[Rfam]
The family of this 173-nucleotide sequence from Vibrio tapetis is "Group II catalytic intron D1-D4-3". Pairs were carried over by alignment from the consensus structure.
RNA sequence: UUGCUGGCCAACGGCAGGGUUUGAAGGAAGCGAUAGGAAGUUAACACGUACACAACGAAAGUGAACCUGAUUCGGCAAUUUAGGUGGGUAAGCGUGCAAAAUAGCGUGAAGCCCGAUACUCAAUCAGACCUAGAUUGUGCUUGAGGGUGGCAUUGUUAACAGGGAGCCAGUGC
Numbered sequence: 001u002u003g004c005u006g007g008c009c010a011a012c013g014g015c016a017g018g019g020u021u022u023g024a025a026g027g028a029a030g031c032g033a034u035a036g037g038a039a040g041u042u043a044a045c046a047c048g049u050a051c052a053c054a055a056c057g058a059a060a061g062u063g064a065a066c067c068u069g070a071u072u073c074g075g076c077a078a079u080u081u082a083g084g085u086g087g088g089u090a091a092g093c094g095u096g097c098a099a100a101a102u103a104g105c106g107u108g109a110a111g112c113c114c115g116a117u118a119c120u121c122a123a124u125c126a127g128a129c130c131u132a133g134a135u136u137g138u139g140c141u142u143g144a145g146g147g148u149g150g151c152a153u154u155g156u157u158a159a160c161a162g163g164g165a166g167c168c169a170g171u172g173c
Stems, first nucleotide, its partner, number of pairs: 001017006030173003034169001041159005048154001051149003066146003070142001075138003079134007086114004092107004